RNA sequence: GAAGCAGGACAGAUGGCCGCUCUCCGCUUGCGGAGGGAGGAAAGUCCGGGCUCCAGAGGGCGUGGUGCUGGAUAACGUCCAGCGGGGGUGACCCCAGGGAUAGUGCCACAGAGAGAAGUCCGCCCGUCUCGGCGGGUAAGGGUGAAAGGGUGAGGUAAGAGCUCACCGGGUCCGGCGGUGACGUCGGAUGCCAGGUAAACCCCACCAGGAGCAAGGCCGAAUAGGGAAGCGUCAAGGGUGGCCCGCCCAUGCUUCCGGGUUGGCUGCUUGAGGCCGUCGGUAACGGCGGUCCCAGAGGAAUGGUCAUCGUCCGUCCCGGGGUAACCCGCGGCGGGAACAGAACCCGGCUUACGGACUGCUUCAGCC
Numbered sequence: 001g002a003a004g005c006a007g008g009a010c011a012g013a014u015g016g017c018c019g020c021u022c023u024c025c026g027c028u029u030g031c032g033g034a035g036g037g038a039g040g041a042a043a044g045u046c047c048g049g050g051c052u053c054c055a056g057a058g059g060g061c062g063u064g065g066u067g068c069u070g071g072a073u074a075a076c077g078u079c080c081a082g083c084g085g086g087g088g089u090g091a092c093c094c095c096a097g098g099g100a101u102a103g104u105g106c107c108a109c110a111g112a113g114a115g116a117a118g119u120c121c122g123c124c125c126g127u128c129u130c131g132g133c134g135g136g137u138a139a140g141g142g143u144g145a146a147a148g149g150g151u152g153a154g155g156u157a158a159g160a161g162c163u164c165a166c167c168g169g170g171u172c173c174g175g176c177g178g179u180g181a182c183g184u185c186g187g188a189u190g191c192c193a194g195g196u197a198a199a200c201c202c203c204a205c206c207a208g209g210a211g212c213a214a215g216g217c218c219g220a221a222u223a224g225g226g227a228a229g230c231g232u233c234a235a236g237g238g239u240g241g242c243c244c245g246c247c248c249a250u251g252c253u254u255c256c257g258g259g260u261u262g263g264c265u266g267c268u269u270g271a272g273g274c275c276g277u278c279g280g281u282a283a284c285g286g287c288g289g290u291c292c293c294a295g296a297g298g299a300a301u302g303g304u305c306a307u308c309g310u311c312c313g314u315c316c317c318g319g320g321g322u323a324a325c326c327c328g329c330g331g332c333g334g335g336a337a338c339a340g341a342a343c344c345c346g347g348c349u350u351a352c353g354g355a356c357u358g359c360u361u362c363a364g365c366c
Base pairs, nucleotide, nucleotide: 001362002361003360004359005358006357007356010353012308013307014306015305016304017303018302020037021036022035023034024033025032026031042350043349044348046347047346048345049344050343051211052210053209054208058244059243060242061241063207064206065205066204067203068082069081070080071079072078083097084095085094086093087092098202099201103200104199105196106195107194120141121140122137123136124135125134126133127132149167150166151165152164153163154162169191170189171188172187173186174185175184176183177182215265216264217263218262225256226255227254228253229252230251236248237247238246239245272291273290274289275288276287277286278285279284
RNA: Bacterial RNase P class A